[Rfam]
RNA sequence: GGUGGGGUGGCAGAGUGGCCUAUUGCGUCUGCCUUGAAAGCAGAUGGCGCAAGCCUCCUGGGUUCGAAUCCCAGCCCCACCG
Numbered sequence: 001g002g003u004g005g006g007g008u009g010g011c012a013g014a015g016u017g018g019c020c021u022a023u024u025g026c027g028u029c030u031g032c033c034u035u036g037a038a039a040g041c042a043g044a045u046g047g048c049g050c051a052a053g054c055c056u057c058c059u060g061g062g063u064u065c066g067a068a069u070c071c072c073a074g075c076c077c078c079a080c081c082g
Stems, first nucleotide, its partner, number of pairs: 001081007010026004028044005058074005
RNA: tRNA
Organism: Halobaculum gomorrense